[Rfam]
RNA sequence: GGGAGCAGGAGGGUCGCUGACAGUGUUAGACACUGAGGAAAGUCCCCUCUCCGCGAUGCAGGCGUCUCGUCACAAGACGGGGGUCCGGGAGGGCCGGCUCUGCAGCAGAAACGAACCAUGCCAGGAGUACGGUGAACCCGCGAGGGGGAGGUUUCCUGAGUGUGGCUGGAACGGGCAACCACGCCGGAGCAAGUCCAAGCAGGUCCGAAUGGCAUCGACAGGACCGGGUAGGAUGCAUAGUUGAAUGCGACCAGCCGAAAGGUGAACAGAAAGGGGCUUACUCCCUGCACCC
Numbered sequence: 001g002g003g004a005g006c007a008g009g010a011g012g013g014u015c016g017c018u019g020a021c022a023g024u025g026u027u028a029g030a031c032a033c034u035g036a037g038g039a040a041a042g043u044c045c046c047c048u049c050u051c052c053g054c055g056a057u058g059c060a061g062g063c064g065u066c067u068c069g070u071c072a073c074a075a076g077a078c079g080g081g082g083g084u085c086c087g088g089g090a091g092g093g094c095c096g097g098c099u100c101u102g103c104a105g106c107a108g109a110a111a112c113g114a115a116c117c118a119u120g121c122c123a124g125g126a127g128u129a130c131g132g133u134g135a136a137c138c139c140g141c142g143a144g145g146g147g148g149a150g151g152u153u154u155c156c157u158g159a160g161u162g163u164g165g166c167u168g169g170a171a172c173g174g175g176c177a178a179c180c181a182c183g184c185c186g187g188a189g190c191a192a193g194u195c196c197a198a199g200c201a202g203g204u205c206c207g208a209a210u211g212g213c214a215u216c217g218a219c220a221g222g223a224c225c226g227g228g229u230a231g232g233a234u235g236c237a238u239a240g241u242u243g244a245a246u247g248c249g250a251c252c253a254g255c256c257g258a259a260a261g262g263u264g265a266a267c268a269g270a271a272a273g274g275g276g277c278u279u280a281c282u283c284c285c286u287g288c289a290c291c292c
Stems, first nucleotide, its partner, number of pairs: 001292003005288005010282002012252006021035005040279003044276005049189004055219001057217002061185005066081005082095005096180002101177003116165006122158005137145002193234004202225005
Shown here is a 292-nucleotide RNA, a member of the family "Archaeal RNase P". By type it is a ribozyme. Rfam links the family to the GO terms tRNA processing, multimeric ribonuclease P complex and ribonuclease P activity. Clan: RNaseP clan. Pairs were carried over by alignment from the consensus structure, which is taken from published work.